[Rfam]
RNA: Rhizobiales sRNA Atu_C8
Organism: Roseibium aquae
RNA sequence: GAUGACAACGUCUCUCAUUCUUGUAGUAGGAUCGCGCGCCAUCGGAACGGCUUGAGCUGUUCGGAUCGCUGGCGCGCAUGACAAGGCUCCUCGGGGGCCUUUUUUUGUACCCGGCA
Numbered sequence: 001g002a003u004g005a006c007a008a009c010g011u012c013u014c015u016c017a018u019u020c021u022u023g024u025a026g027u028a029g030g031a032u033c034g035c036g037c038g039c040c041a042u043c044g045g046a047a048c049g050g051c052u053u054g055a056g057c058u059g060u061u062c063g064g065a066u067c068g069c070u071g072g073c074g075c076g077c078a079u080g081a082c083a084a085g086g087c088u089c090c091u092c093g094g095g096g097g098c099c100u101u102u103u104u105u106u107g108u109a110c111c112c113g114g115c116a
Stems, first nucleotide, its partner, number of pairs: 009026001029112002032109001034077008045062006083101008